[Rfam]
RNA sequence: UUCUUAUUAAGAGUAGGUGGAGGGACUAGCCCUGUGAAGCCCGGCAACCGACUUAACGUUUUGUUAAGCACGGUGCUAAAUCUUGCAGCAGUAGCUGAGAGAUAAGAA
Numbered sequence: 001u002u003c004u005u006a007u008u009a010a011g012a013g014u015a016g017g018u019g020g021a022g023g024g025a026c027u028a029g030c031c032c033u034g035u036g037a038a039g040c041c042c043g044g045c046a047a048c049c050g051a052c053u054u055a056a057c058g059u060u061u062u063g064u065u066a067a068g069c070a071c072g073g074u075g076c077u078a079a080a081u082c083u084u085g086c087a088g089c090a091g092u093a094g095c096u097g098a099g100a101g102a103u104a105a106g107a108a
Stems, first nucleotide, its partner, number of pairs: 001108008013042001016041003022032003026085001028083002043077004048073002050069001053066001081100001086097004
A member of the RNA family "SAM riboswitch aptamer (S box leader)" from Priestia veravalensis, 108 nucleotides long. NCBI's taxonomy places the organism under Bacteria, Bacillota, Caryophanales, Bacillaceae, Priestia. Gene Ontology term of the family: regulation of gene expression.